[Rfam]
RNA: Listeria sRNA rli31
Organism: Listeria welshimeri
RNA sequence: UAGAGAUUGUUAUUUGAAAUAAGUUGGUUAAAAAUAAAUCACUUCCCCCAUAGAAAUAUUUUUAAUCACUUAAGACGAAUAAACACUCCUUAAAUAUAGUUGUAGCACAGAAUUU
Numbered sequence: 001u002a003g004a005g006a007u008u009g010u011u012a013u014u015u016g017a018a019a020u021a022a023g024u025u026g027g028u029u030a031a032a033a034a035u036a037a038a039u040c041a042c043u044u045c046c047c048c049c050a051u052a053g054a055a056a057u058a059u060u061u062u063u064a065a066u067c068a069c070u071u072a073a074g075a076c077g078a079a080u081a082a083a084c085a086c087u088c089c090u091u092a093a094a095u096a097u098a099g100u101u102g103u104a105g106c107a108c109a110g111a112a113u114u115u
Base pairs, nucleotide, nucleotide: 003088004087005086008085009084010083012080013079014078015077016076020072021071022070023069024068026067027066028065029064030063031062032061033060034059035058036057039054040053